[Rfam]
A member of the RNA family "mir-15 microRNA precursor family" from Scleropages formosus, 90 nucleotides long. The family has 164 seed sequences and 2,045 matches in Rfam 15.1. The organism belongs to Scleropages, within Eukaryota. The literature on the family includes a 2001 paper in Science by Lagos-Quintana et al., "Identification of novel genes coding for small expressed RNAs". The family is grouped with related families in Rfam's "mir-15 clan". About the family: This family represents the related mir-15a and mir-15b sequences. In humans miR-15a and miR-16 are clustered within 0.5 kb at 13q14. This region has been shown to be deleted in more than half of B cell chronic lymphocytic leukaemias (CLL). Both miR-15a and miR-16 are deleted or down-regulated in more than two thirds of CLL cases. The mature sequence is excised from the 5' arm of the hairpin. A search with the family's covariance model found it, with a score of 67 bits. The family's consensus secondary structure was predicted with RNAalifold.

RNA sequence: GGCUGCCAUGCUGUAGCAGCACGUAAAUAUUGGAGUUAAAACACUGCUGGAUGCCUCCAGUAUUGAUCGUGCUGCUGGAGUAAAGCUGGC
Number, nucleotide and partner (000 for none) at each position: 001g090002g000003c088004u000005g086006c085007c000008a000009u000010g000011c000012u000013g000014u077015a076016g075017c074018a073019g072020c071021a070022c069023g068024u066025a000026a064027a063028u062029a061030u060031u059032g058033g057034a056035g055036u000037u000038a000039a000040a000041a000042c000043a000044c000045u000046g000047c000048u000049g000050g000051a000052u000053g000054c000055c035056u034057c033058c032059a031060g030061u029062a028063u027064u026065g000066a024067u000068c023069g022070u021071g020072c019073u018074g017075c016076u015077g014078g000079a000080g000081u000082a000083a000084a000085g006086c005087u000088g003089g000090c001